RNA sequence: GCAGCGGGCCGGGCCCCUCUGGCGAUGCGCACUGAACUCCAAGAGCAGGCGCCUCGUGAUGUCGGACCGCAUCA
Number, nucleotide and partner (000 for none) at each position: 001g000002c000003a000004g000005c000006g068007g067008g000009c065010c064011g063012g062013g000014c000015c000016c000017c000018u000019c000020u000021g000022g057023c056024g055025a054026u000027g052028c051029g050030c000031a000032c000033u000034g000035a000036a000037c000038u000039c000040c000041a000042a000043g000044a000045g000046c000047a000048g000049g000050c029051g028052c027053c000054u025055c024056g023057u022058g000059a000060u000061g000062u012063c011064g010065g009066a000067c007068c006069g000070c000071a000072u000073c000074a000